Description:
Rfam assigns this 157-nucleotide RNA sequence from Bacillus pseudomycoides to the family "glmS glucosamine-6-phosphate activated ribozyme aptamer". NCBI's taxonomy places the organism under Bacteria, Bacillota, Bacilli, Caryophanales, Bacillus. By type it is a riboswitch. Rfam's curators write: This entry contains a glucosamine-6-phosphate activated ribozyme that is found in the mRNA for GlmS. GlmS is an enzyme that uses fructose-6-phosphate and glutamine to generate glucosamine-6-phosphate. The family's consensus secondary structure is taken from published work.
RNA sequence: UGAAUUAUGAAAGCGCCAGAGCUACAAGUUAUGUAGUUGACGAGGAGGAGUUUUAUCGAGAUUUCGGCGGAUGACUCCCGGUUGUUCAUCACAACCGAAAGCUUUUAUUUAAAGCGUUGAGGUGACUCAAUGGACAAAGAUAAAAGUGUGAUGAGGG
Numbered sequence: 001u002g003a004a005u006u007a008u009g010a011a012a013g014c015g016c017c018a019g020a021g022c023u024a025c026a027a028g029u030u031a032u033g034u035a036g037u038u039g040a041c042g043a044g045g046a047g048g049a050g051u052u053u054u055a056u057c058g059a060g061a062u063u064u065c066g067g068c069g070g071a072u073g074a075c076u077c078c079c080g081g082u083u084g085u086u087c088a089u090c091a092c093a094a095c096c097g098a099a100a101g102c103u104u105u106u107a108u109u110u111a112a113a114g115c116g117u118u119g120a121g122g123u124g125a126c127u128c129a130a131u132g133g134a135c136a137a138a139g140a141u142a143a144a145a146g147u148g149u150g151a152u153g154a155g156g157g
Stems, first nucleotide, its partner, number of pairs: 020038007047078005056067004079097006101147007115132007